Background: The record is a 73-nucleotide RNA from Synaphobranchus kaupii, which matches "Small nucleolar RNA SNORD99" in Rfam. A search with the family's covariance model found it, with a score of 61 bits. It is annotated as a C/D-box small nucleolar RNA. Rfam 15.1 lists 673 matches to the family in 613 species.
RNA sequence: GCUGGUCUUUGAUGUAAAACCUUUAGAACUGGACUGUGGAAUGACAGUUGCGGAUAUGGGACUGAGACCAGCA
Number, nucleotide and partner (000 for none) at each position: 001g072002c071003u070004g069005g068006u000007c000008u000009u000010u000011g000012a000013u000014g000015u000016a000017a000018a000019a000020c000021c000022u000023u000024u000025a000026g000027a000028a000029c000030u000031g000032g000033a000034c000035u000036g000037u000038g000039g000040a000041a000042u000043g000044a000045c000046a000047g000048u000049u000050g000051c000052g000053g000054a000055u000056a000057u000058g000059g000060g000061a000062c000063u000064g000065a000066g000067a000068c005069c004070a003071g002072c001073a000
For this family Rfam cites "Purified box C/D snoRNPs are able to reproduce site-specific 2'-O-methylation of target RNA in vitro" (Galardi et al., Mol Cell Biol, 2002). Its Rfam clan is "SNORD58 clan". The family's consensus secondary structure was predicted with RNAalifold.